[Rfam]
RNA sequence: GGCGUAUUUUGCGGCGGCGGAGCUCGACCGCCGGUUCAAGCCAUGAAGACGAUCAUCGUGAUGUCUAUGGCCCCUUCGACUUCGCUCAGGAGAGCCGAUCUGCCGGGUUCUGCAGAUCGCCCCA
Numbered sequence: 001g002g003c004g005u006a007u008u009u010u011g012c013g014g015c016g017g018c019g020g021a022g023c024u025c026g027a028c029c030g031c032c033g034g035u036u037c038a039a040g041c042c043a044u045g046a047a048g049a050c051g052a053u054c055a056u057c058g059u060g061a062u063g064u065c066u067a068u069g070g071c072c073c074c075u076u077c078g079a080c081u082u083c084g085c086u087c088a089g090g091a092g093a094g095c096c097g098a099u100c101u102g103c104c105g106g107g108u109u110c111u112g113c114a115g116a117u118c119g120c121c122c123c124a
Stems, first nucleotide, its partner, number of pairs: 016032005089123002092120001096119002099116005105110001
Background: The family of this 124-nucleotide RNA sequence from Aurantimonas sp. 22II-16-19i is "ALIL pseudoknot". Taxonomically the source falls in Aurantimonas (Bacteria, Pseudomonadota, Hyphomicrobiales, Aurantimonadaceae). Pairs were carried over by alignment from the consensus structure, which is taken from published work. Its family is annotated with positive regulation of translational frameshifting in the Gene Ontology.